The record is a 93-nucleotide sequence from Olea europaea, which matches "MIR397 microRNA precursor family" in Rfam. It scores 62 bits against the family's covariance model. The family's consensus secondary structure was predicted with WAR. Rfam 15.1 lists 496 matches to the family in 218 species. The literature on the family includes a 2009 paper in BMC Genomics by Mica et al., "High throughput approaches reveal splicing of primary microRNA transcripts and tissue specific expression of mature microRNAs in Vitis vinifera".
RNA sequence: CUUAAAAACAUCAUUGAGUGCAGCGUUGAUGAUACUGUACCCGUGUUAUAAUCGGGCAUUCUUUCAACAAUGCUACACUCAAUAAUGUUUUUA
Numbered sequence: 001c002u003u004a005a006a007a008a009c010a011u012c013a014u015u016g017a018g019u020g021c022a023g024c025g026u027u028g029a030u031g032a033u034a035c036u037g038u039a040c041c042c043g044u045g046u047u048a049u050a051a052u053c054g055g056g057c058a059u060u061c062u063u064u065c066a067a068c069a070a071u072g073c074u075a076c077a078c079u080c081a082a083u084a085a086u087g088u089u090u091u092u093a
Base pairs, nucleotide, nucleotide: 006090007089008088009087010086011085013083014082015081016080017079018078019077020076022074023073024072025071026070027069028068030066031065032064